Record summary: Small nucleolar RNA SNORD116: a 92-nucleotide RNA sequence from Tursiops truncatus. A reference for the family is Cavaille et al. (2000), "Identification of brain-specific and imprinted small nucleolar RNA genes exhibiting an unusual genomic organization", Proc Natl Acad Sci U S A. Lineage of the source: Eukaryota > Deuterostomia > Mammalia > Odontoceti > Tursiops.

Nucleotides: 092
Stems, first nucleotide, its partner, number of pairs: 001092005027054004032047003
Number, partner (000 for none) and nucleotide at each position: 001092g002091g003090a004089u005088c006000g007000a008000c009000g010000a011000u012000g013000a014000c015000u016000c017000c018000c019000a020000c021000a022000a023000a024000u025000g026000a027054a028053u029052u030051c031000c032047u033046u034045g035000g036000a037000u038000a039000u040000c041000u042000g043000a044000a045034c046033a047032a048000a049000a050000u051030g052029a053028g054027u055000a056000a057000g058000a059000a060000a061000u062000c063000c064000g065000u066000a067000g068000c069000g070000u071000c072000a073000c074000c075000u076000c077000a078000u079000u080000g081000g082000a083000a084000c085000u086000g087000a088005g089004g090003u091002c092001c